The record is a 71-nucleotide sequence from Cephus cinctus, which matches "mir-12 microRNA precursor family" in Rfam.
Lineage of the source: Eukaryota > Ecdysozoa > Panarthropoda > Mandibulata > Cephus.
The base pairs follow the family's consensus structure, which was predicted with RNAalifold.
It scores 71 bits against the family's covariance model.
On this family, see Werren et al., Science 2010: "Functional and evolutionary insights from the genomes of three parasitoid Nasonia species".
RNA sequence: CGGGUGUGAGUAUUACAUCAGGUACUGGUGUAGUGUCGUGACGACCAGUACUUGUGUUAUACUUGCGCUCA
Numbered sequence: 001c002g003g004g005u006g007u008g009a010g011u012a013u014u015a016c017a018u019c020a021g022g023u024a025c026u027g028g029u030g031u032a033g034u035g036u037c038g039u040g041a042c043g044a045c046c047a048g049u050a051c052u053u054g055u056g057u058u059a060u061a062c063u064u065g066c067g068c069u070c071a
Stems, first nucleotide, its partner, number of pairs: 002070005009063004015057004021052009